[Rfam]
Record summary: Rfam assigns this 462-nucleotide RNA from Yersinia pestis to the family "cspA thermoregulator". Its family is annotated with regulation of translation and response to temperature stimulus in the Gene Ontology. The family's consensus secondary structure is taken from published work.
Nucleotides: 462
Base pairs, nucleotide, nucleotide: 004020005019006018007017008016009015028246031244032243045238046237049236051234052233053228054227057226058225064223066221067220071218073216075214076213078212079211080210084181086179089176098168099167100166101165102164104162107125109123141153142152143151183198184197185196187194251343252342253341254340263271264270276330277329279327281326282325283324284323285321288315289314291312292311293310298307349364350363351362366388367387368386369383370382371381372380373379392427393426432459433458434457435456436455437454438453439452440451441450442449443448
Number, partner (000 for none) and nucleotide at each position: 001000a002000u003000c004020g005019g006018u007017u008016u009015g010000u011000a012000g013000c014000a015009c016008a017007g018006a019005c020004c021000u022000a023000u024000u025000u026000a027000u028246g029000u030000a031244a032243g033000c034000c035000a036000u037000u038000u039000a040000a041000a042000g043000u044000a045238a046237a047000g048000a049236g050000u051234u052233c053228c054227u055000a056000g057226u058225u059000a060000a061000a062000g063000c064223g065000a066221u067220a068000u069000u070000u071218u072000u073216u074000a075214g076213a077000c078212a079211u080210c081000a082000c083000u084181u085000c086179u087000c088000c089176g090000a091000c092000g093000a094000a095000u096000u097000a098168c099167c100166u101165u102164c103000u104162u105000u106000u107125g108000u109123g110000c111000c112000c113000c114000c115000a116000u117000a118000a119000g120000u121000a122000a123109c124000u125107c126000a127000a128000g129000c130000a131000g132000a133000c134000c135000u136000c137000a138000a139000u140000u141153g142152c143151c144000a145000u146000g147000u148000a149000g150000u151143g152142g153141c154000a155000c156000a157000a158000a159000a160000u161000a162104a163000u164102g165101a166100a167099g168098g169000a170000a171000a172000u173000a174000u175000a176089u177000u178000u179086a180000u181084g182000u183198c184197u185196a186000a187194u188000a189000a190000a191000a192000u193000g194187a195000c196185u197184g198183g199000u200000u201000u202000g203000g204000u205000a206000a207000a208000a209000u210080g211079g212078u213076u214075u215000g216073a217000u218071g219000c220067u221066g222000g223064u224000a225058a226057a227054g228053g229000u230000u231000u232000u233052g234051g235000u236049u237046u238045u239000a240000u241000u242000u243032c244031u245000c246028c247000u248000g249000c250000a251343g252342a253341u254340g255000g256000c257000a258000g259000c260000a261000a262000a263271g264270a265000u266000g267000u268000a269000u270264u271263u272000g273000u274000a275000c276330a277329u278000u279327u280000c281326u282325c283324u284323g285321c286000a287000a288315u289314c290000c291312a292311g293310g294000g295000u296000a297000a298307u299000g300000a301000c302000u303000a304000c305000a306000a307298a308000a309000c310293u311292c312291u313000u314289g315288a316000u317000g318000a319000a320000g321285g322000c323284c324283a325282g326281a327279a328000c329277g330276u331000u332000g333000a334000g335000u336000u337000c338000a339000g340254c341253a342252u343251c344000g345000a346000g347000c348000a349364a350363g351362g352000c353000c354000a355000a356000a357000a358000a359000g360000g361000c362351c363350c364349u365000u366388c367387a368386g369383c370382u371381g372380u373379a374000a375000a376000c377000g378000u379373u380372g381371u382370a383369g384000c385000a386368c387367u388366g389000u390000a391000a392427u393426u394000c395000a396000c397000a398000u399000u400000a401000c402000u403000g404000u405000u406000g407000u408000u409000a410000a411000c412000g413000u414000u415000u416000a417000g418000c419000u420000g421000u422000a423000a424000a425000u426393a427392g428000a429000u430000u431000u432459a433458g434457a435456a436455g437454c438453c439452u440451c441450g442449u443448c444000u445000u446000u447000u448443g449442a450441c451440g452439g453438g454437g455436u456435u457434u458433u459432u460000u461000u462000u